Source information
Small nucleolar RNA SNORD2: a 69-nucleotide RNA from Carlito syrichta. The match comes from Rfam's covariance-model search (57 bits). The family's consensus secondary structure was predicted with WAR.
[Rfam]
RNA sequence: UGGUGGAACGAUGGCAAUUAUCUCAUGGGCCUGACCUGAAAAGAAGGGAAUACUCAAUGCUGAUCACUU
Numbered sequence: 001u002g003g004u005g006g007a008a009c010g011a012u013g014g015c016a017a018u019u020a021u022c023u024c025a026u027g028g029g030c031c032u033g034a035c036c037u038g039a040a041a042a043g044a045a046g047g048g049a050a051u052a053c054u055c056a057a058u059g060c061u062g063a064u065c066a067c068u069u
Base pairs, nucleotide, nucleotide: 002068003067004066005065006064